[Rfam]
RNA sequence: GUGCAUUCUUUUAAACCCCCUUGUAGUUUAUGAUAGCUGCUGGGACAAGAAGGAAUGCAAAAGCAACAUGCACCUGGAUGUUUCCAAAGUGAAGAGUCUCUAACAGUGCCUCUUUGCUAUUUCACGUCUAGGACAUUACU
Numbered sequence: 001g002u003g004c005a006u007u008c009u010u011u012u013a014a015a016c017c018c019c020c021u022u023g024u025a026g027u028u029u030a031u032g033a034u035a036g037c038u039g040c041u042g043g044g045a046c047a048a049g050a051a052g053g054a055a056u057g058c059a060a061a062a063g064c065a066a067c068a069u070g071c072a073c074c075u076g077g078a079u080g081u082u083u084c085c086a087a088a089g090u091g092a093a094g095a096g097u098c099u100c101u102a103a104c105a106g107u108g109c110c111u112c113u114u115u116g117c118u119a120u121u122u123c124a125c126g127u128c129u130a131g132g133a134c135a136u137u138a139c140u
Stems, first nucleotide, its partner, number of pairs: 003058004010050003019044003023040001025038003062140002073132006088118007096110001100106001
A member of the RNA family "Small nucleolar RNA SNORA14" from Acipenser ruthenus, 140 nucleotides long. It is annotated as an H/ACA-box small nucleolar RNA. ACA14 is a member of the H/ACA class of snoRNA that guide the sites of modification of uridines to pseudouridines. The family's consensus secondary structure was predicted with RNAfold. Rfam links the family to the GO terms nucleolus and RNA processing. Taxonomically the source falls in Acipenser (Eukaryota, Opisthokonta, Vertebrata, Teleostomi).